[Rfam]
RNA: Small nucleolar RNA SNORD24
RNA sequence: GGCCUGUGAUGACAUCUUAAUACUUGCUACUCUUGAUUGCUUAGAUGAUGACGCUUUGUCCACCAAGAUCUCUGAGGCC
Numbered sequence: 001g002g003c004c005u006g007u008g009a010u011g012a013c014a015u016c017u018u019a020a021u022a023c024u025u026g027c028u029a030c031u032c033u034u035g036a037u038u039g040c041u042u043a044g045a046u047g048a049u050g051a052c053g054c055u056u057u058g059u060c061c062a063c064c065a066a067g068a069u070c071u072c073u074g075a076g077g078c079c
Stems, first nucleotide, its partner, number of pairs: 001079004